[Rfam]
RNA sequence: UGCUGCCCCCCAUGCCUGCUGACGUUGUCAGCGACAUGCCAGGCAACCAUCGGUCUUCGGGUUGCCGCGCAGCGCCCGCUGCGUGACCGAGCCAGUUCGCACCGCAUCCUUGCGCGAACGGCCACCGGACUUUCCGGUGGUGGAUGC
Number, nucleotide and partner (000 for none) at each position: 001u000002g000003c000004u000005g000006c000007c000008c000009c000010c000011c038012a037013u036014g035015c033016c000017u000018g032019c031020u030021g029022a028023c027024g000025u000026u000027g023028u022029c021030a020031g019032c018033g015034a000035c014036a013037u012038g011039c000040c000041a000042g000043g065044c064045a063046a062047c061048c060049a000050u000051c000052g088053g087054u086055c085056u000057u000058c000059g000060g048061g047062u046063u045064g044065c043066c000067g084068c083069g082070c081071a080072g079073c000074g000075c000076c000077c000078g000079c072080u071081g070082c069083g068084u067085g055086a054087c053088c052089g000090a000091g000092c000093c000094a000095g000096u000097u000098c000099g000100c000101a000102c000103c000104g000105c000106a000107u000108c000109c000110u000111u000112g000113c000114g147115c146116g145117a000118a000119c000120g000121g141122c140123c139124a138125c137126c136127g135128g134129a000130c000131u000132u000133u000134c128135c127136g126137g125138u124139g123140g122141u121142g000143g000144a000145u116146g115147c114
RNA: radC RNA